Rfam assigns this 168-nucleotide RNA sequence from Aerococcus urinaehominis to the family "M-box riboswitch aptamer (ykoK leader)". From the family's description: M-box riboswitch, also know as ykoK leader is described as a metaloregulatory RNA that sense divalent metals and function as a genetic control element of genes related to divalent metal transport in bacteria. Pairs were carried over by alignment from the consensus structure. The literature on the family includes a 2004 paper in Proc Natl Acad Sci U S A by Barrick et al., "New RNA motifs suggest an expanded scope for riboswitches in bacterial genetic control".
RNA sequence: UAAAUGCCUUGUCAAGUGAGGUUACUUAUAUUAGAGAUACGCCACUGCCCAGAAACGUCCAAAGACGCCAACGGGUCAGCAGAACUUUUCGAAUUAAGGAAUUUUCUAAUGUGGCUGGAGCCAUCCUAUGCUAAUAAGUGCUGAAACUGUAAGCGAAGAGGACAAGUU
Numbered sequence: 001u002a003a004a005u006g007c008c009u010u011g012u013c014a015a016g017u018g019a020g021g022u023u024a025c026u027u028a029u030a031u032u033a034g035a036g037a038u039a040c041g042c043c044a045c046u047g048c049c050c051a052g053a054a055a056c057g058u059c060c061a062a063a064g065a066c067g068c069c070a071a072c073g074g075g076u077c078a079g080c081a082g083a084a085c086u087u088u089u090c091g092a093a094u095u096a097a098g099g100a101a102u103u104u105u106c107u108a109a110u111g112u113g114g115c116u117g118g119a120g121c122c123a124u125c126c127u128a129u130g131c132u133a134a135u136a137a138g139u140g141c142u143g144a145a146a147c148u149g150u151a152a153g154c155g156a157a158g159a160g161g162a163c164a165a166g167u168u
Stems, first nucleotide, its partner, number of pairs: 005164002008161003011154002015148003020142003025138005032133003041115005047076004056067004082106003088100003117126003